[Rfam]
RNA sequence: GGCGGUAUUAUUGUCCUGUCACAGCAGUAUUGUGGUUCGAGUACUACUGCUGGUACGGGACAUACCCACCGCU
Numbered sequence: 001g002g003c004g005g006u007a008u009u010a011u012u013g014u015c016c017u018g019u020c021a022c023a024g025c026a027g028u029a030u031u032g033u034g035g036u037u038c039g040a041g042u043a044c045u046a047c048u049g050c051u052g053g054u055a056c057g058g059g060a061c062a063u064a065c066c067c068a069c070c071g072c073u
Stems, first nucleotide, its partner, number of pairs: 003071004012062007022052008
The record is a 73-nucleotide RNA from Cimex lectularius, which matches "mir-1000 microRNA precursor family" in Rfam. It scores 69 bits against the family's covariance model.